[Rfam]
Background:
The family of this 104-nucleotide RNA sequence from Aegilops tauschii is "MIR6201 microRNA precursor family". Rfam 15.1 lists 8 matches to the family in 6 species. Taxonomically the source falls in Aegilops tauschii (Eukaryota, Spermatophyta, Liliopsida, Aegilops).
Nucleotides: 104
Stems, first nucleotide, its partner, number of pairs: 005100021027078006034071001036069001046058004
Number, partner (000 for none) and nucleotide at each position: 001000a002000c003000c004000c005100g006099a007098g008097u009096u010095u011094g012093a013092c014091c015090c016089u017088g018087a019086g020085g021084c022083a023082c024081u025080c026000a027078u028077a029076c030075c031074g032073c033000c034071a035000g036069c037000a038000a039000g040000u041000u042000c043000a044000a045000a046058a047057u048056g049055c050000u051000a052000g053000c054000u055049g056048u057047a058046u059000g060000a061000g062000u063000g064000c065000g066000u067000c068000a069036g070000g071034u072000a073032g074031c075030g076029g077028u078027a079000c080025g081024a082023g083022u084021g085020u086019c087018u088017c089016a090015g091014g092013g093012u094011c095010a096009a097008g098007c099006u100005u101000c102000g103000g104000u